[Rfam]
RNA: Y RNA
RNA sequence: AGCUGGUCCAAAGGUAGUGAGUUAUCUCAAUUGGAUGUUCAGCCAGUUCUAGAUUGAACUCGUUGUUCUACUCUUUCUCCCAGAUUCUCACUACUGCUCUUGACUAGUUUUAA
Numbered sequence: 001a002g003c004u005g006g007u008c009c010a011a012a013g014g015u016a017g018u019g020a021g022u023u024a025u026c027u028c029a030a031u032u033g034g035a036u037g038u039u040c041a042g043c044c045a046g047u048u049c050u051a052g053a054u055u056g057a058a059c060u061c062g063u064u065g066u067u068c069u070a071c072u073c074u075u076u077c078u079c080c081c082a083g084a085u086u087c088u089c090a091c092u093a094c095u096g097c098u099c100u101u102g103a104c105u106a107g108u109u110u111u112a113a
Base pairs, nucleotide, nucleotide: 001109002108003107004106005105006104007103008102010101011100014097015096016092017091018090019089020088021087042072045069046068